Shown here is an 81-nucleotide sequence from Drosophila ananassae, a member of the family "Small nucleolar RNA Me28S-Cm3227". The pairing is the family consensus, mapped onto this sequence.

RNA sequence: CUGUUUCUGAUGAUAAGUUUAAUCUGAACAAUCACUGUUGAUUUUUAACUUAAAAUUUAACCAAAAGGAUUCUGAGAACAG
Numbered sequence: 001c002u003g004u005u006u007c008u009g010a011u012g013a014u015a016a017g018u019u020u021a022a023u024c025u026g027a028a029c030a031a032u033c034a035c036u037g038u039u040g041a042u043u044u045u046u047a048a049c050u051u052a053a054a055a056u057u058u059a060a061c062c063a064a065a066a067g068g069a070u071u072c073u074g075a076g077a078a079c080a081g
Stems, first nucleotide, its partner, number of pairs: 001081003005078001
The family's RNA type in Rfam is C/D-box small nucleolar RNA.